[Rfam]
RNA sequence: AGAACAAUCUGUUAGGUGAGGCUCCUGUCUGGAAAUACGCUACUGCCCUCCAAUAAUCGAGAGAAUAUUGUGAUGAGUUUUUUAGGGUCAACUGAAAUUGUCGAACAAGGCUUUUUCUAAUGUAGCUGAUAGUGAUUAUUGACUAUCUAAGCCAUUCAGUGCUAAAACUCGACGUUGAGAUUUGGCG
Numbered sequence: 001a002g003a004a005c006a007a008u009c010u011g012u013u014a015g016g017u018g019a020g021g022c023u024c025c026u027g028u029c030u031g032g033a034a035a036u037a038c039g040c041u042a043c044u045g046c047c048c049u050c051c052a053a054u055a056a057u058c059g060a061g062a063g064a065a066u067a068u069u070g071u072g073a074u075g076a077g078u079u080u081u082u083u084a085g086g087g088u089c090a091a092c093u094g095a096a097a098u099u100g101u102c103g104a105a106c107a108a109g110g111c112u113u114u115u116u117c118u119a120a121u122g123u124a125g126c127u128g129a130u131a132g133u134g135a136u137u138a139u140u141g142a143c144u145a146u147c148u149a150a151g152c153c154a155u156u157c158a159g160u161g162c163u164a165a166a167a168c169u170c171g172a173c174g175u176u177g178a179g180a181u182u183u184g185g186c187g
Base pairs, nucleotide, nucleotide: 006182007181008180009179010178011173012172013108015169016168017167020163021162022161025159026158027157030154031153032152039126040125041124042123043122045088046087047086048085049084055078057076058075094117095116096115097114100111101110102109128147129146130145131144132143133142